RNA sequence: AUAGUUAGAAGCUUUCGAUAGGGGACUAUGUUCCUUUGGAAGGUCUGAGAGCAUGUAUCAUCGUGAUGAUGACAAGCUAAUGCUUGAAGCCGGUUUAAGAGAAAUGUAUACUUCUGAGGACAUAAUGUGGAUGAAUCAGAAAGUAUUUGGGAAUGCUGGUGUGCUAUAAUGGAAGUCAAAUUCGAAAGACACAAUCGAUCUUGUGUAACAAAAUUCAGACUACUCUUUGACUGU
Numbered sequence: 001a002u003a004g005u006u007a008g009a010a011g012c013u014u015u016c017g018a019u020a021g022g023g024g025a026c027u028a029u030g031u032u033c034c035u036u037u038g039g040a041a042g043g044u045c046u047g048a049g050a051g052c053a054u055g056u057a058u059c060a061u062c063g064u065g066a067u068g069a070u071g072a073c074a075a076g077c078u079a080a081u082g083c084u085u086g087a088a089g090c091c092g093g094u095u096u097a098a099g100a101g102a103a104a105u106g107u108a109u110a111c112u113u114c115u116g117a118g119g120a121c122a123u124a125a126u127g128u129g130g131a132u133g134a135a136u137c138a139g140a141a142a143g144u145a146u147u148u149g150g151g152a153a154u155g156c157u158g159g160u161g162u163g164c165u166a167u168a169a170u171g172g173a174a175g176u177c178a179a180a181u182u183c184g185a186a187a188g189a190c191a192c193a194a195u196c197g198a199u200c201u202u203g204u205g206u207a208a209c210a211a212a213a214u215u216c217a218g219a220c221u222a223c224u225c226u227u228u229g230a231c232u233g234u
Base pairs, nucleotide, nucleotide: 001234002233003232004231007228008227009226012188013187014186015185016184017183018182020037021036022035023034024033045218046217047216048215049214050165051164052163053162058072059071060070061069062068074085075084076083077082089160090159091158092157093156094155108146109145110144189206190205191204192203193202194201